[Rfam]
RNA sequence: AUCGUUCAUCUCUUAGUUUUAGAGACGGAAGUAGACCUUAAAAAAGUCGAAGGAACGCAUG
Numbered sequence: 001a002u003c004g005u006u007c008a009u010c011u012c013u014u015a016g017u018u019u020u021a022g023a024g025a026c027g028g029a030a031g032u033a034g035a036c037c038u039u040a041a042a043a044a045a046g047u048c049g050a051a052g053g054a055a056c057g058c059a060u061g
Base pairs, nucleotide, nucleotide: 003057004056005055006054007053009025010024011023012022013021028058034048035047036046
Background
Rfam assigns this 61-nucleotide sequence to the family "Glutamine riboswitch aptamer (glnA leader)". Its family is annotated with glutamine binding in the Gene Ontology. It is one of the family's seed sequences.